Shown here is a 195-nucleotide RNA from Jejuibacter calystegiae, a member of the family "Yersinia sRNA 276".
It scores 160 bits against the family's covariance model.
By type it is an antisense RNA.
The base pairs follow the family's consensus structure, which was predicted with RNAfold.
The source organism's lineage runs through Bacteria, Pseudomonadati, Pseudomonadota, Gammaproteobacteria and Jejuibacter.
A reference for the family is Nuss et al. (2015), "Transcriptomic profiling of Yersinia pseudotuberculosis reveals reprogramming of the Crp regulon by temperature and uncovers Crp as a master regulator of small RNAs", PLoS Genet.
RNA sequence: GACCGACAUCAGCGAUUCGUUCUGGGAGCCGUUGCCCACCGCCAGGUAGGCAUUCAUACCCAGCUCUUUCAUCUGCUGUUCGCCAAUUACCCGGGUAUUCACGCUGCUGGCGAAGGCGUCCGCCAGCUGACGCGCCUGGGAAGCCAGAUAGGCGGCGUUACAGAUAUUCGGCGGCAUAUUGCCGAGAUCCUUGGC
Number, nucleotide and partner (000 for none) at each position: 001g000002a000003c000004c000005g189006a188007c000008a000009u000010c000011a000012g032013c031014g030015a000016u028017u027018c026019g000020u024021u000022c000023u000024g020025g000026g018027a017028g016029c000030c014031g013032u012033u000034g042035c041036c000037c000038a000039c000040c000041g035042c034043c000044a000045g000046g000047u000048a000049g000050g059051c000052a000053u000054u000055c000056a000057u000058a000059c050060c000061c000062a077063g076064c075065u000066c000067u000068u000069u000070c000071a000072u000073c000074u000075g064076c063077u062078g135079u134080u000081c132082g131083c000084c129085a128086a000087u126088u000089a000090c000091c000092c122093g121094g120095g119096u118097a000098u000099u112100c000101a000102c109103g108104c000105u000106g000107c000108u103109g102110g000111c000112g099113a000114a000115g000116g000117c000118g096119u095120c094121c093122g092123c000124c000125a000126g087127c000128u085129g084130a000131c082132g081133c000134g079135c078136c163137u162138g161139g000140g159141a158142a000143g156144c155145c154146a000147g000148a000149u000150a000151g000152g000153c000154g145155g144156c143157g000158u141159u140160a000161c138162a137163g136164a000165u000166a000167u186168u185169c184170g183171g182172c181173g000174g000175c000176a000177u000178a000179u000180u000181g172182c171183c170184g169185a168186g167187a000188u006189c005190c000191u000192u000193g000194g000195c000